[Rfam]
RNA sequence: GCUCAGGCGGGGGGCACCGACGCGCGGCCCACAUCCUUGGGCGCCUGGACCGCGCUGAGCCACUGGCGAGACCGACCCGCCGCUGC
Numbered sequence: 001g002c003u004c005a006g007g008c009g010g011g012g013g014g015c016a017c018c019g020a021c022g023c024g025c026g027g028c029c030c031a032c033a034u035c036c037u038u039g040g041g042c043g044c045c046u047g048g049a050c051c052g053c054g055c056u057g058a059g060c061c062a063c064u065g066g067c068g069a070g071a072c073c074g075a076c077c078c079g080c081c082g083c084u085g086c
Stems, first nucleotide, its partner, number of pairs: 001086002006081006013061003022055006029048001039073002042068004
RNA: c-di-GMP-II-GAG riboswitch aptamer